The record is a 112-nucleotide RNA sequence from Clostridium sp. AM58-1XD, which matches "drum RNA" in Rfam.

[Rfam]
RNA sequence: AAGUGUCGAAGCAUAUUAGCGUACCGGAAAGCCUUGUUAUGCGGAGCUUUCAGUAGGGGUUGUGCAGGAACCUCAAACCGGAGUAGGCAGAUGUCGAAGGAAAAUGCUCAAA
Numbered sequence: 001a002a003g004u005g006u007c008g009a010a011g012c013a014u015a016u017u018a019g020c021g022u023a024c025c026g027g028a029a030a031g032c033c034u035u036g037u038u039a040u041g042c043g044g045a046g047c048u049u050u051c052a053g054u055a056g057g058g059g060u061u062g063u064g065c066a067g068g069a070a071c072c073u074c075a076a077a078c079c080g081g082a083g084u085a086g087g088c089a090g091a092u093g094u095c096g097a098a099g100g101a102a103a104a105u106g107c108u109c110a111a112a
Stems, first nucleotide, its partner, number of pairs: 001049004011042005017036003021032002024081004064107003086095003

The family's consensus secondary structure is taken from published work.
About the family: Firmicutes, Bacteroidetes (1 example), Proteobacteria (2 examples), Spirochaetes (2 examples).
A search with the family's covariance model found it, with a score of 85 bits.
Rfam classes the family as a small RNA.